[Rfam]
RNA sequence: GCGGAGGUUGCCGAGCUAGGUCAAAGGCGGCAGACUCAAGAUCUGCUUCCGUAGGGGUUCGCCGGUUCGAAUCCGGCCCUCCGCA
Numbered sequence: 001g002c003g004g005a006g007g008u009u010g011c012c013g014a015g016c017u018a019g020g021u022c023a024a025a026g027g028c029g030g031c032a033g034a035c036u037c038a039a040g041a042u043c044u045g046c047u048u049c050c051g052u053a054g055g056g057g058u059u060c061g062c063c064g065g066u067u068c069g070a071a072u073c074c075g076g077c078c079c080u081c082c083g084c085a
Stems, first nucleotide, its partner, number of pairs: 001084007010028003030046005061077005
The record is an 85-nucleotide sequence from Cuniculiplasma sp. C_DKE, which matches "tRNA" in Rfam.
Taxonomically the source falls in Cuniculiplasma (Archaea, Thermoplasmata, Thermoplasmatales, Cuniculiplasmataceae).
A search with the family's covariance model found it, with a score of 54 bits.
The family's consensus secondary structure is taken from published work.